[Rfam]
Guanidine-I riboswitch aptamer: a 113-nucleotide RNA sequence from Pseudanabaenaceae cyanobacterium LEGE 13415. Gene Ontology term of the family: regulation of gene expression. Lineage of the source: Bacteria > Bacillati > Cyanophyceae > Pseudanabaenales > Pseudanabaenaceae. Pairs were carried over by alignment from the consensus structure.
RNA sequence: CACGAUCGCUUCUAGGGUUCCGAUUCAGCCACCGUUUAGGCGAAUGCCUGGUCCGAGAGAAGCAAACUGUCUAGCACGAGACAGUCACACGGCGGGACAAAAGCCCGGGAGAG
Numbered sequence: 001c002a003c004g005a006u007c008g009c010u011u012c013u014a015g016g017g018u019u020c021c022g023a024u025u026c027a028g029c030c031a032c033c034g035u036u037u038a039g040g041c042g043a044a045u046g047c048c049u050g051g052u053c054c055g056a057g058a059g060a061a062g063c064a065a066a067c068u069g070u071c072u073a074g075c076a077c078g079a080g081a082c083a084g085u086c087a088c089a090c091g092g093c094g095g096g097a098c099a100a101a102a103g104c105c106c107g108g109g110a111g112a113g
Stems, first nucleotide, its partner, number of pairs: 008063005015054002020051002022048001023045004066085007088108001090111001094106003